[Rfam]
Nucleotides: 127
Base pairs, nucleotide, nucleotide: 018059019058020057021056022039023038024037025036026035027034040051041050042049043048071103072102073101074100075099081098082097083096084095085094114127115126116125117124118123
Number, partner (000 for none) and nucleotide at each position: 001000u002000g003000c004000g005000a006000u007000g008000a009000g010000u011000c012000g013000a014000g015000a016000a017000a018059g019058u020057c021056a022039g023038a024037c025036a026035a027034u028000c029000u030000u031000u032000u033000g034027a035026u036025u037024g038023u039022u040051u041050c042049g043048c044000g045000c046000a047000a048043g049042c050041g051040g052000c053000u054000a055000g056021u057020g058019a059018c060000a061000u062000u063000u064000c065000u066000a067000g068000u069000g070000g071103g072102a073101c074100a075099c076000a077000u078000a079000u080000a081098c082097c083096u084095a085094c086000c087000g088000g089000a090000u091000u092000a093000u094085g095084u096083a097082g098081g099075g100074u101073g102072u103071u104000c105000g106000a107000a108000c109000a110000c111000c112000a113000a114127a115126c116125g117124u118123u119000g120000u121000g122000g123118a124117g125116c126115g127114u